RNA sequence: AUGCCCCUUUCAGGUUAAGUCAUGUCUUAGGAGGUUAAUAAAGAACGGUAAAGGAAAUCUCCAUAAAACCCAGAAAAGAAAUAGUAAAAGUCCUCUUUGGAUCCUGUCUGGAAAUGUAUAU
Numbered sequence: 001a002u003g004c005c006c007c008u009u010u011c012a013g014g015u016u017a018a019g020u021c022a023u024g025u026c027u028u029a030g031g032a033g034g035u036u037a038a039u040a041a042a043g044a045a046c047g048g049u050a051a052a053g054g055a056a057a058u059c060u061c062c063a064u065a066a067a068a069c070c071c072a073g074a075a076a077a078g079a080a081a082u083a084g085u086a087a088a089a090g091u092c093c094u095c096u097u098u099g100g101a102u103c104c105u106g107u108c109u110g111g112a113a114a115u116g117u118a119u120a121u
Stems, first nucleotide, its partner, number of pairs: 002050004008044003014039004021031001057115001060112004070100005076094001078092002082089001

The record is a 121-nucleotide RNA from Dipodomys ordii, which matches "Small nucleolar RNA SNORA26" in Rfam. A reference for the family is Huttenhofer et al. (2001), "RNomics: an experimental approach that identifies 201 candidates for novel, small, non-messenger RNAs in mouse", EMBO J. Lineage of the source: Eukaryota > Sarcopterygii > Glires > Rodentia > Dipodomys. The base pairs follow the family's consensus structure, which was predicted with RNAalifold. Its Rfam clan is "SNORA27 clan".